[Rfam]
RNA: U2 spliceosomal RNA
Organism: Rhodotorula taiwanensis
RNA sequence: ACCGCCGUGCGCCACUCACAGUAUCUGUUCUUAUGAUUGUGAAUAAUCAUAUCCCCCCAUCGGGGGGACUAUAUUCAUAAUUAUCUUUGGACGCCGGCGCGGCUGGUUCUUGGGCUUGCCCUCCCGGUCGCCAAGAUGGCCCUUCCACUCCACUCCUGGUCGGCGCUGUCGGGCAACC
Numbered sequence: 001a002c003c004g005c006c007g008u009g010c011g012c013c014a015c016u017c018a019c020a021g022u023a024u025c026u027g028u029u030c031u032u033a034u035g036a037u038u039g040u041g042a043a044u045a046a047u048c049a050u051a052u053c054c055c056c057c058c059a060u061c062g063g064g065g066g067g068a069c070u071a072u073a074u075u076c077a078u079a080a081u082u083a084u085c086u087u088u089g090g091a092c093g094c095c096g097g098c099g100c101g102g103c104u105g106g107u108u109c110u111u112g113g114g115c116u117u118g119c120c121c122u123c124c125c126g127g128u129c130g131c132c133a134a135g136a137u138g139g140c141c142c143u144u145c146c147a148c149u150c151c152a153c154u155c156c157u158g159g160u161c162g163g164c165g166c167u168g169u170c171g172g173g174c175a176a177c178c
Stems, first nucleotide, its partner, number of pairs: 003011002032051006052068007099131008112121003135170005141163002145159002